Annotation
Rfam assigns this 75-nucleotide RNA from Tranquillimonas rosea to the family "Singlet oxygen resistance RNA X". Rfam classes the family as a small RNA. Lineage of the source: Bacteria > Pseudomonadati > Rhodobacterales > Roseobacteraceae > Tranquillimonas. Rfam describes the family as follows. SorX (RSs2461)like SorY is a singlet oxygen induced sRNA that counteracts oxidative stress by targeting mRNA for a transporter in Rhodobacter. It also has an impact on resistance against organic hydroperoxides. It targets SD sequence of potA mRNA via an aSD sequence. The aSD sequence and some neighbouring nucleotides are identical to the one of SorY (targets takP mRNA). A reference for the family is Berghoff et al. (2009), "Photooxidative stress-induced and abundant small RNAs in Rhodobacter sphaeroides", Mol Microbiol. Rfam links the family to the GO term response to photooxidative stress.
RNA sequence: AUCCCGCCGCGGUGUCCGGGCAAUGACACCGUACCUCCCUGUUGGACUGGCCCGGGCAUUCGCCCGGGCCUUUUU
Numbered sequence: 001a002u003c004c005c006g007c008c009g010c011g012g013u014g015u016c017c018g019g020g021c022a023a024u025g026a027c028a029c030c031g032u033a034c035c036u037c038c039c040u041g042u043u044g045g046a047c048u049g050g051c052c053c054g055g056g057c058a059u060u061c062g063c064c065c066g067g068g069c070c071u072u073u074u075u
Stems, first nucleotide, its partner, number of pairs: 010031007050069008